RNA: TPP riboswitch aptamer (THI element)
RNA sequence: UUAGCCCACGAGGGGAGUCUUCAGAAAGGCUGAGAGGAAGCUGGUCGCUUCGACCCUUUGAACCUGUAAGUUCACACUUGCGCAGGGAUGUGGUCUGCUUUCCUU
Number, nucleotide and partner (000 for none) at each position: 001u000002u000003a000004g000005c000006c093007c092008a091009c090010g089011a057012g056013g055014g054015g000016a000017g030018u029019c028020u027021u026022c000023a000024g000025a000026a021027a020028g019029g018030c017031u000032g000033a000034g000035a000036g000037g051038a050039a049040g048041c047042u000043g000044g000045u000046c000047g041048c040049u039050u038051c037052g000053a000054c014055c013056c012057u011058u000059u000060g000061a000062a000063c086064c085065u084066g083067u080068a079069a078070g077071u000072u000073c000074a000075c000076a000077c070078u069079u068080g067081c000082g000083c066084a065085g064086g063087g000088a000089u010090g009091u008092g007093g006094u000095c000096u000097g000098c000099u000100u000101u000102c000103c000104u000105u000